[Rfam]
RNA: Small nucleolar RNA U6-53/MBII-28
Organism: Austrofundulus limnaeus
RNA sequence: CUCCAGUGAUGACCCAGCCAUGCUAAUACCGAUGCAUUAGGCAGAUGCACUUGAUCUGCCUGGGUGCAAGUGAGUUCAACUCACCUUCUCAUACUGAUGUAUCAGUGUGCGCUGAGGAGA
Numbered sequence: 001c002u003c004c005a006g007u008g009a010u011g012a013c014c015c016a017g018c019c020a021u022g023c024u025a026a027u028a029c030c031g032a033u034g035c036a037u038u039a040g041g042c043a044g045a046u047g048c049a050c051u052u053g054a055u056c057u058g059c060c061u062g063g064g065u066g067c068a069a070g071u072g073a074g075u076u077c078a079a080c081u082c083a084c085c086u087u088c089u090c091a092u093a094c095u096g097a098u099g100u101a102u103c104a105g106u107g108u109g110c111g112c113u114g115a116g117g118a119g120a
Base pairs, nucleotide, nucleotide: 001119002118003117004116042058043057044056045055046054